[Rfam]
mir-328 microRNA precursor family: a 75-nucleotide RNA sequence from Myotis lucifugus. Its family is annotated with RISC complex and miRNA-mediated post-transcriptional gene silencing in the Gene Ontology. A reference for the family is Kim et al. (2004), "Identification of many microRNAs that copurify with polyribosomes in mammalian neurons", Proc Natl Acad Sci U S A. The base pairs follow the family's consensus structure, which was predicted with RNAalifold. The match comes from Rfam's covariance-model search (99 bits). Taxonomically the source falls in Myotis (Eukaryota, Opisthokonta, Tetrapoda, Amniota).

RNA sequence: UGGAGCAGGGGGGCAGGAGGGGCUCAGGGAGGAAGUAUGUGAAGCCCCUGGCCCUCUCUGCCCUUCCGUCCCCCG
Numbered sequence: 001u002g003g004a005g006c007a008g009g010g011g012g013g014c015a016g017g018a019g020g021g022g023c024u025c026a027g028g029g030a031g032g033a034a035g036u037a038u039g040u041g042a043a044g045c046c047c048c049u050g051g052c053c054c055u056c057u058c059u060g061c062c063c064u065u066c067c068g069u070c071c072c073c074c075g
Stems, first nucleotide, its partner, number of pairs: 002071003006068001008066010019055005025050005